[Rfam]
RNA sequence: GGAUAUUGUUUCUAGGGUUCCGAUUCCUGGUGAUGUGGGGAAUGGCUGGUCCGAGAGAAACAGGCUAGGCUUUGUAAAGAUUUUUGCCACUAGCUACACGGCGGGACAAAAGCCCGGGAGAC
Numbered sequence: 001g002g003a004u005a006u007u008g009u010u011u012c013u014a015g016g017g018u019u020c021c022g023a024u025u026c027c028u029g030g031u032g033a034u035g036u037g038g039g040g041a042a043u044g045g046c047u048g049g050u051c052c053g054a055g056a057g058a059a060a061c062a063g064g065c066u067a068g069g070c071u072u073u074g075u076a077a078a079g080a081u082u083u084u085u086g087c088c089a090c091u092a093g094c095u096a097c098a099c100g101g102c103g104g105g106a107c108a109a110a111a112g113c114c115c116g117g118g119a120g121a122c
Stems, first nucleotide, its partner, number of pairs: 007062006015052002020049002022046001023043006063095006069087002097117001099120001103115003
Dot-bracket structure: ......((((((..((...(((((((((.........))))))..).)).))....))))))((((((((...............))..)))))).(.[...(((.......))).)..]..